Rfam assigns this 177-nucleotide RNA sequence from Streptomyces sp. S4.7 to the family "c-di-AMP riboswitch aptamer (ydaO/yuaA leader)". From the family's description: This family represents a conserved RNA structure found upstream of the ydaO and yuaA genes in Bacillus subtilis and related genes in other bacteria. It scores 66 bits against the family's covariance model. The organism belongs to Streptomyces, within Bacteria.
RNA sequence: UCGCGUCAAGCGCCGAAGGCAGGAGCGGGGGACCCACAGGUAAGUGCCGGUCAUCACGGCCGGCUCGGGGUGCAGCCGUGCGCAGGGGGACGUGAAGACGUUCCCGGGCCGCACGGCCGGGCAACUCACUUGGCCCGAACCCGACAGCUCACCUCGCAGGCGUCGGUGAGGAGAUCA
Numbered sequence: 001u002c003g004c005g006u007c008a009a010g011c012g013c014c015g016a017a018g019g020c021a022g023g024a025g026c027g028g029g030g031g032a033c034c035c036a037c038a039g040g041u042a043a044g045u046g047c048c049g050g051u052c053a054u055c056a057c058g059g060c061c062g063g064c065u066c067g068g069g070g071u072g073c074a075g076c077c078g079u080g081c082g083c084a085g086g087g088g089g090a091c092g093u094g095a096a097g098a099c100g101u102u103c104c105c106g107g108g109c110c111g112c113a114c115g116g117c118c119g120g121g122c123a124a125c126u127c128a129c130u131u132g133g134c135c136c137g138a139a140c141c142c143g144a145c146a147g148c149u150c151a152c153c154u155c156g157c158a159g160g161c162g163u164c165g166g167u168g169a170g171g172a173g174a175u176c177a
Stems, first nucleotide, its partner, number of pairs: 011162004025157006035067001068142003076116007119136004